[Rfam]
RNA sequence: CCCACGGCUUGCGCCGUGGGCUACCAUUGUGCCGCCCCUCCGGGGCU
Numbered sequence: 001c002c003c004a005c006g007g008c009u010u011g012c013g014c015c016g017u018g019g020g021c022u023a024c025c026a027u028u029g030u031g032c033c034g035c036c037c038c039u040c041c042g043g044g045g046c047u
Stems, first nucleotide, its partner, number of pairs: 001020008034046005
Dot-bracket structure: ((((((((....)))))))).............(((((...))))).
A member of the RNA family "Acido-Lenti-1 RNA" from Planctomycetaceae bacterium SCGC AG-212-F19, 47 nucleotides long. It is annotated as a small RNA. A search with the family's covariance model found it, with a score of 42 bits.